[Rfam]
RNA: Small nucleolar RNA psi18S-841/snoR66
RNA sequence: UGCAAGUGCACUCUGUGUCACAUUGAUUUGCCACAUGUGAUGACAAUUUGUUAACUUGCCAGAUCAAACCAAAGCUGCGUUUAUCCAUGUGAUUGUGUCCUUAAAACUAAUUGCAUUGAAAACGCGCCUUACACUCC
Numbered sequence: 001u002g003c004a005a006g007u008g009c010a011c012u013c014u015g016u017g018u019c020a021c022a023u024u025g026a027u028u029u030g031c032c033a034c035a036u037g038u039g040a041u042g043a044c045a046a047u048u049u050g051u052u053a054a055c056u057u058g059c060c061a062g063a064u065c066a067a068a069c070c071a072a073a074g075c076u077g078c079g080u081u082u083a084u085c086c087a088u089g090u091g092a093u094u095g096u097g098u099c100c101u102u103a104a105a106a107c108u109a110a111u112u113g114c115a116u117u118g119a120a121a122a123c124g125c126g127c128c129u130u131a132c133a134c135u136c137c
Stems, first nucleotide, its partner, number of pairs: 002059006010051002014045003017041007025034001066135001071129001074127002078124002084119002087116008095107002